[Rfam]
RNA sequence: CACAGAUGAUGUUCACGAUGGUCUACUGAAAUCAUUGAUGACACUGCCUCACGGCAUUGACUGAUGUGACUAA
Number, nucleotide and partner (000 for none) at each position: 001c068002a067003c066004a065005g000006a000007u000008g000009a000010u000011g000012u000013u000014c000015a000016c000017g000018a000019u000020g000021g000022u000023c000024u000025a000026c000027u000028g000029a000030a000031a000032u000033c000034a000035u000036u000037g000038a000039u000040g000041a000042c000043a000044c000045u000046g000047c000048c000049u000050c000051a000052c000053g000054g000055c000056a000057u000058u000059g000060a000061c000062u000063g000064a000065u004066g003067u002068g001069a000070c000071u000072a000073a000